[Rfam]
RNA sequence: GGUCCCAUCGUCUAGUGGCCCAGGACGCUGGCCUCUCACGCCGGAAACACGGGUUCGAAACCCGUUGGGACCA
Number, nucleotide and partner (000 for none) at each position: 001g072002g071003u070004c069005c068006c067007a066008u000009c000010g026011u025012c024013u023014a000015g000016u000017g000018g000019c000020c000021c000022a000023g013024g012025a011026c010027g000028c044029u043030g042031g041032c040033c000034u000035c000036u000037c000038a000039c000040g032041c031042c030043g029044g028045a000046a000047a000048c000049a065050c064051g063052g062053g061054u000055u000056c000057g000058a000059a000060a000061c053062c052063c051064g050065u049066u007067g006068g005069g004070a003071c002072c001073a000
The family of this 73-nucleotide sequence from Leptospirillum ferriphilum is "tRNA". The family's RNA type in Rfam is transfer RNA. The source organism's lineage runs through Bacteria, Nitrospiraceae, Leptospirillum, Leptospirillum sp. Group III and Leptospirillum ferriphilum. Transfer RNA (tRNA) molecules are approximately 80 nucleotides in length. Their secondary structure includes four short double-helical elements and three loops (D, anti-codon, and T loops). Further hydrogen bonds mediate the characteristic L-shaped molecular structure. tRNAs have two regions of fundamental functional importance: the anti-codon, which is responsible for specific mRNA codon recognition, and the 3' end, to which the tRNAs corresponding amino acid is attached (by aminoacyl-tRNA synthetases). tRNAs cope with the degeneracy of the genetic code in two manners: having more than one tRNA (with a specific anti-codon) for a particular amino acid; and 'wobble' base-pairing, i.e. permitting non-standard base-pairing at the 3rd anti-codon position.